[Rfam]
RNA sequence: CCAGGUCCAGACACAAUAAGGAUUGACAGAUUGAGAGCUCUUUCUUGAUUUUGUGGGUGGUGGUGCAUGGCCGUUCUUAGUUGGUGGAGUGAUUUGUCUGCUUAAUUGCGAUAACGAACGAGACCUUAACCUGCUAAAUAGCCAGGCUAGCUUUGGCUGGUCGCCGGCUUCUUAGAGGGACUAUCGGCUCAAGCCGAUGGAAGUUUGAGGCAAUAACAGGUUAAACCUUUUCACAGGCCUGUAAAAGUGUCAUCUAAUGAUCUAGUCCAUAAUAUCGUUGCUCUCUUAGCUGGGGAGCAAGGUGGUUUAGCACCUAGAUAGGGCAACAUUCCUGGAUUCCGAGAACGUCAACUAGCAAAUAGUGGCCAAUUCGGCGGCGAGCUGAAGGUUACCCUGAAGCCGUUGAAACGCACGCUAAGGAAUGGGCAGCUGAAGCUGUUUAAGGUACGUGCUAUUCCCAUGUGAAAAUAUGCUGAUAGCAAAGGCUUAGCUAGGCCUGAGUUAUCAGAGCUGCUUCUCUGAAGUCGCGGGAGGGAGUUUAUAUUAUAUUAUUCUUCCAAAGCUGUGAUGCCCUUAGAUGUUCUGGGCC
Numbered sequence: 001c002c003a004g005g006u007c008c009a010g011a012c013a014c015a016a017u018a019a020g021g022a023u024u025g026a027c028a029g030a031u032u033g034a035g036a037g038c039u040c041u042u043u044c045u046u047g048a049u050u051u052u053g054u055g056g057g058u059g060g061u062g063g064u065g066c067a068u069g070g071c072c073g074u075u076c077u078u079a080g081u082u083g084g085u086g087g088a089g090u091g092a093u094u095u096g097u098c099u100g101c102u103u104a105a106u107u108g109c110g111a112u113a114a115c116g117a118a119c120g121a122g123a124c125c126u127u128a129a130c131c132u133g134c135u136a137a138a139u140a141g142c143c144a145g146g147c148u149a150g151c152u153u154u155g156g157c158u159g160g161u162c163g164c165c166g167g168c169u170u171c172u173u174a175g176a177g178g179g180a181c182u183a184u185c186g187g188c189u190c191a192a193g194c195c196g197a198u199g200g201a202a203g204u205u206u207g208a209g210g211c212a213a214u215a216a217c218a219g220g221u222u223a224a225a226c227c228u229u230u231u232c233a234c235a236g237g238c239c240u241g242u243a244a245a246a247g248u249g250u251c252a253u254c255u256a257a258u259g260a261u262c263u264a265g266u267c268c269a270u271a272a273u274a275u276c277g278u279u280g281c282u283c284u285c286u287u288a289g290c291u292g293g294g295g296a297g298c299a300a301g302g303u304g305g306u307u308u309a310g311c312a313c314c315u316a317g318a319u320a321g322g323g324c325a326a327c328a329u330u331c332c333u334g335g336a337u338u339c340c341g342a343g344a345a346c347g348u349c350a351a352c353u354a355g356c357a358a359a360u361a362g363u364g365g366c367c368a369a370u371u372c373g374g375c376g377g378c379g380a381g382c383u384g385a386a387g388g389u390u391a392c393c394c395u396g397a398a399g400c401c402g403u404u405g406a407a408a409c410g411c412a413c414g415c416u417a418a419g420g421a422a423u424g425g426g427c428a429g430c431u432g433a434a435g436c437u438g439u440u441u442a443a444g445g446u447a448c449g450u451g452c453u454a455u456u457c458c459c460a461u462g463u464g465a466a467a468a469u470a471u472g473c474u475g476a477u478a479g480c481a482a483a484g485g486c487u488u489a490g491c492u493a494g495g496c497c498u499g500a501g502u503u504a505u506c507a508g509a510g511c512u513g514c515u516u517c518u519c520u521g522a523a524g525u526c527g528c529g530g531g532a533g534g535g536a537g538u539u540u541a542u543a544u545u546a547u548a549u550u551a552u553u554c555u556u557c558c559a560a561a562g563c564u565g566u567g568a569u570g571c572c573c574u575u576a577g578a579u580g581u582u583c584u585g586g587g588c589c
Stems, first nucleotide, its partner, number of pairs: 001586005007580001012055005025044002028041003059574002062572004068568001069566001072562001074560002080119003084115002086095003099110003127551002130178003134175004140169004182543003

Eukaryotic small subunit ribosomal RNA: a 589-nucleotide part of an RNA from Lachnellula suecica. A reference for the family is Yusupov et al. (2001), "Crystal structure of the ribosome at 5.5 A resolution", Science. Its Rfam clan is "SSU clan". A search with the family's covariance model found it, with a score of 1427 bits. Its family is annotated with structural constituent of ribosome and ribosome in the Gene Ontology.